The family of this 85-nucleotide RNA sequence from Phaseolus vulgaris is "tRNA". The sequence is in the family's curated seed alignment. By type it is a transfer RNA. NCBI's taxonomy places the organism under Eukaryota, Streptophyta, Pentapetalae, Phaseoleae, Phaseolus. The family's consensus secondary structure is taken from published work.

[Rfam]
RNA sequence: GGGGAUAUGGCGAAAUUGGUAGACGCUACGGACUUAAAAUCCGUCGACUUAAUAAAUCAUGAGGGUUCAAGUCCCUCUAUCCCCA
Numbered sequence: 001g002g003g004g005a006u007a008u009g010g011c012g013a014a015a016u017u018g019g020u021a022g023a024c025g026c027u028a029c030g031g032a033c034u035u036a037a038a039a040u041c042c043g044u045c046g047a048c049u050u051a052a053u054a055a056a057u058c059a060u061g062a063g064g065g066u067u068c069a070a071g072u073c074c075c076u077c078u079a080u081c082c083c084c085a
Stems, first nucleotide, its partner, number of pairs: 001084007010026003028044005061077005